A member of the RNA family "Small nucleolar RNA snoR17" from Brassica oleracea, 93 nucleotides long. The family's RNA type in Rfam is C/D-box small nucleolar RNA. A reference for the family is Brown et al. (2001), "Multiple snoRNA gene clusters from Arabidopsis", RNA. Rfam 15.1 lists 32 matches to the family in 14 species.

RNA sequence: UAUAAUGAUGAAUAUAAUCACAAUUGUCACUACCUCUGAGGCACAUUUUAUUUUCGUUUUGUAUUGAUUGCAUCUAAGAACGGUGAUAUGAAG
Number, nucleotide and partner (000 for none) at each position: 001u000002a000003u000004a031005a000006u029007g028008a027009u026010g000011a000012a000013u000014a000015u000016a000017a000018u000019c000020a000021c000022a000023a000024u000025u000026g009027u008028c007029a006030c000031u004032a000033c000034c000035u000036c000037u000038g000039a000040g000041g000042c000043a000044c000045a000046u000047u000048u000049u000050a000051u000052u000053u000054u000055c000056g000057u000058u000059u000060u000061g000062u000063a000064u000065u000066g000067a087068u086069u085070g084071c000072a000073u000074c000075u000076a000077a000078g000079a000080a000081c000082g000083g000084u070085g069086a068087u067088a000089u000090g000091a000092a000093g000